RNA sequence: UUGAAGAACACGAGAGAGCGCCUCCCAAAAGCCACCGGCCUGGGAGGCCGCCGAAGGUGCAAGCGCCAUUCGCCACCCGAGGGAUGGCGUGACUCUCUCAGGCAAAAGGAUCGUGUUCGGACG
Number, nucleotide and partner (000 for none) at each position: 001u000002u000003g000004a000005a000006g118007a117008a116009c115010a114011c113012g112013a111014g000015a000016g000017a000018g000019c000020g048021c047022c046023u045024c044025c043026c042027a041028a000029a000030a000031g000032c000033c000034a000035c000036c000037g000038g000039c000040c000041u027042g026043g025044g024045a023046g022047g021048c020049c000050g103051c102052c101053g099054a098055a000056g000057g097058u000059g095060c000061a000062a000063g090064c089065g088066c087067c086068a085069u084070u083071c082072g000073c000074c000075a000076c000077c000078c000079g000080a000081g000082g071083g070084a069085u068086g067087g066088c065089g064090u063091g000092a000093c000094u000095c059096u000097c057098u054099c053100a000101g052102g051103c050104a000105a000106a000107a000108g000109g000110a000111u013112c012113g011114u010115g009116u008117u007118c006119g000120g000121a000122c000123g000
A member of the RNA family "Glycine riboswitch aptamer" from Litorilinea aerophila, 123 nucleotides long. A search with the family's covariance model found it, with a score of 65 bits. About the family: This family represents the bacterial glycine riboswitch.